A member of the RNA family "c-di-GMP-I-GGC riboswitch aptamer" from Brevibacillus brevis, 101 nucleotides long. Pairs were carried over by alignment from the consensus structure, which is taken from published work. A reference for the family is Smith et al. (2012), "Structural and biochemical characterization of linear dinucleotide analogues bound to the c-di-GMP-I aptamer", Biochemistry.
[Rfam]
RNA sequence: AAUGACAAAGGCAAACUUGCUGAAAGGCAGGGACGCAAAGCCACGGGUCUAAGGACGAAGGUCAAAUGACUUUCGCAGCUAGGACAGCCGGGUUGCCAUAC
Number, nucleotide and partner (000 for none) at each position: 001a000002a000003u098004g097005a000006c000007a000008a000009a000010g000011g036012c035013a000014a000015a000016c031017u030018u029019g028020c027021u026022g000023a000024a000025a000026g021027g020028c019029a018030g017031g016032g000033a000034c087035g012036c011037a000038a000039a094040g093041c092042c091043a000044c090045g089046g088047g085048u084049c083050u000051a000052a000053g000054g000055a000056c000057g000058a000059a000060g000061g000062u000063c000064a000065a000066a000067u000068g000069a000070c000071u000072u000073u000074c000075g000076c000077a000078g000079c000080u000081a000082g000083g049084a048085c047086a000087g034088c046089c045090g044091g042092g041093u040094u039095g000096c000097c004098a003099u000100a000101c000